[Rfam]
RNA sequence: GUUGAAAACCCAGUUAGUCAAGAUACGCUGGAGUUCCGACCAUUUGAAAAAAUGUGUUGAACAACUAAAACUUUUCGCACCGCUUUUUUGGGGUUAUUUGGUGAAGUAAA
Numbered sequence: 001g002u003u004g005a006a007a008a009c010c011c012a013g014u015u016a017g018u019c020a021a022g023a024u025a026c027g028c029u030g031g032a033g034u035u036c037c038g039a040c041c042a043u044u045u046g047a048a049a050a051a052a053u054g055u056g057u058u059g060a061a062c063a064a065c066u067a068a069a070a071c072u073u074u075u076c077g078c079a080c081c082g083c084u085u086u087u088u089u090g091g092g093g094u095u096a097u098u099u100g101g102u103g104a105a106g107u108a109a110a
Stems, first nucleotide, its partner, number of pairs: 007035002009031002013028002017024002037059004041054005084108001086106005092099002
A member of the RNA family "SL2 RNA" from Caenorhabditis latens, 110 nucleotides long. Rfam's curators write: This family represents SL2 RNA. SL2 RNA is involved in trans splicing in lower eukaryotes. Trans-splicing is a form of RNA processing. The acquisition of a spliced leader from a SL RNA is a intra-molecular reaction which precisely joins exons derived from separately transcribed RNAs. Approximately 25% of C. elegans genes are organised into polycistronic transcription units and the presence of SL2 on an mRNA is an indication the the gene is in an operon. A reference for the family is Evans and Blumenthal (2000), "trans splicing of polycistronic Caenorhabditis elegans pre-mRNAs: analysis of the SL2 RNA", Mol Cell Biol. The match comes from Rfam's covariance-model search (71 bits). The family has 30 seed sequences and 598 matches in Rfam 15.1.